RNA sequence: GGCGCAUGAUGAGGAAAAGAAAUUGAUCUGAACAUUGGCUGAUUGAGUUAAUCUUAACCUCCUACUCAUUCUGA
Numbered sequence: 001g002g003c004g005c006a007u008g009a010u011g012a013g014g015a016a017a018a019g020a021a022a023u024u025g026a027u028c029u030g031a032a033c034a035u036u037g038g039c040u041g042a043u044u045g046a047g048u049u050a051a052u053c054u055u056a057a058c059c060u061c062c063u064a065c066u067c068a069u070u071c072u073g074a
Stems, first nucleotide, its partner, number of pairs: 006069004029050002
This 74-nucleotide RNA from Dorcoceras hygrometricum belongs to the Rfam family "Small nucleolar RNA Z105". Its family is annotated with nucleolus and RNA processing in the Gene Ontology. A reference for the family is Chen et al. (2003), "The high diversity of snoRNAs in plants: identification and comparative study of 120 snoRNA genes from Oryza sativa", Nucleic Acids Res.